Rfam assigns this 202-nucleotide RNA sequence from Myotis brandtii to the family "Connexin-43 internal ribosome entry site (IRES)". The family has 14 seed sequences and 657 matches in Rfam 15.1. NCBI's taxonomy places the organism under Eukaryota, Eumetazoa, Chordata, Mammalia, Myotis. Rfam's curators write: This family represents the connexin-43 internal ribosome entry site (IRES) which allows cap independent translation during conditions such as heat shock and stress.
RNA sequence: AGCUUUUACGAGGUACCAGCACUUUCCUCUCGUUGGGGCGAAGGAGUGAGGAAAGGCCCGAACAGCAGCAGACUUUGAAACUGUAAACACAGGCGCGUCCAAGUGCCCGAGCCCGCCUUUGCAUUUUCCUUCACCUUCUACGGAGCUGUCAGUGGCCGCCUACUUCACUUCUUUUAAGAGGAAGAAGGGCGCCCUGGCCACG
Numbered sequence: 001a002g003c004u005u006u007u008a009c010g011a012g013g014u015a016c017c018a019g020c021a022c023u024u025u026c027c028u029c030u031c032g033u034u035g036g037g038g039c040g041a042a043g044g045a046g047u048g049a050g051g052a053a054a055g056g057c058c059c060g061a062a063c064a065g066c067a068g069c070a071g072a073c074u075u076u077g078a079a080a081c082u083g084u085a086a087a088c089a090c091a092g093g094c095g096c097g098u099c100c101a102a103g104u105g106c107c108c109g110a111g112c113c114c115g116c117c118u119u120u121g122c123a124u125u126u127u128c129c130u131u132c133a134c135c136u137u138c139u140a141c142g143g144a145g146c147u148g149u150c151a152g153u154g155g156c157c158g159c160c161u162a163c164u165u166c167a168c169u170u171c172u173u174u175u176a177a178g179a180g181g182a183a184g185a186a187g188g189g190c191g192c193c194c195u196g197g198c199c200a201c202g
Stems, first nucleotide, its partner, number of pairs: 002020003007015003029145003034140005040132004048125002051122001054120002071099003075095001103114001105112001148198005154193001157191004163184003166180001168178003